[Rfam]
RNA sequence: AUAAUGAUACUUCCGUAGCAGAAAUGCGCGGCUGGCGGAGUACCCGGCAGAGGUGAGAUUCCUAUGG
Numbered sequence: 001a002u003a004a005u006g007a008u009a010c011u012u013c014c015g016u017a018g019c020a021g022a023a024a025u026g027c028g029c030g031g032c033u034g035g036c037g038g039a040g041u042a043c044c045c046g047g048c049a050g051a052g053g054u055g056a057g058a059u060u061c062c063u064a065u066g067g
Base pairs, nucleotide, nucleotide: 012064013031014030015029016028032050033049034048036046037045038044051063052062053061
Background:
Shown here is a 67-nucleotide sequence, a member of the family "pemK RNA". The family's RNA type in Rfam is cis-regulatory element. It is one of the family's seed sequences.